[Rfam]
RNA sequence: AAAGAGAACAUUGAGAAUAGUCAACAAAGGGUUGAUCCCUCUCAAGAUGGUUCUUACGAGAAUUCACAGAAGAGUUGUUGGGAAUGAAGACAACUUGGUCUCUUU
Number, nucleotide and partner (000 for none) at each position: 001a000002a104003a103004g102005a101006g100007a099008a000009c097010a096011u045012u044013g043014a042015g041016a040017a000018u000019a000020g000021u035022c034023a033024a032025c031026a000027a000028a000029g000030g000031g025032u024033u023034g022035a021036u000037c000038c000039c000040u016041c015042u014043c013044a012045a011046g000047a000048u000049g064050g063051u062052u061053c060054u059055u000056a000057c000058g000059a054060g053061a052062a051063u050064u049065c000066a000067c000068a000069g000070a000071a000072g000073a095074g094075u093076u092077g091078u090079u089080g000081g000082g000083a000084a000085u000086g000087a000088a000089g079090a078091c077092a076093a075094c074095u073096u010097g009098g000099u007100c006101u005102c004103u003104u002105u000

The record is a 105-nucleotide RNA sequence, which matches "Parabacteroides-1 RNA" in Rfam. By type it is a small RNA. The family's consensus secondary structure is taken from published work. Rfam's curators put it in the seed alignment.